[Rfam]
RNA sequence: CCCAGGGCUGCGCCCUGGGCUUUCGAAGCGCGCUGCUUCGCAGCU
Numbered sequence: 001c002c003c004a005g006g007g008c009u010g011c012g013c014c015c016u017g018g019g020c021u022u023u024c025g026a027a028g029c030g031c032g033c034u035g036c037u038u039c040g041c042a043g044c045u
Stems, first nucleotide, its partner, number of pairs: 001019008032044005